[Rfam]
RNA sequence: UCACUGAGCUAGGGGUGCCCGAUGCGGGCUGAGAUGGCAAUGCGCCUGACCCUUUGAACCUGAUGCGGAUAAUACCGCCGUAGGGAAGCUGCAUACUUUCUGU
Number, nucleotide and partner (000 for none) at each position: 001u000002c000003a000004c000005u000006g000007a090008g089009c088010u087011a053012g052013g051014g050015g000016u000017g029018c028019c027020c026021g025022a000023u000024g000025c021026g020027g019028g018029c017030u000031g000032a000033g000034a000035u000036g046037g045038c044039a000040a000041u000042g000043c000044g038045c037046c036047u000048g000049a000050c014051c013052c012053u011054u000055u000056g000057a000058a000059c084060c083061u082062g081063a000064u000065g078066c077067g076068g075069a000070u000071a000072a000073u000074a000075c068076c067077g066078c065079c000080g000081u062082a061083g060084g059085g000086a000087a010088g009089c008090u007091g000092c000093a000094u000095a000096c000097u000098u000099u000100c000101u000102g000103u000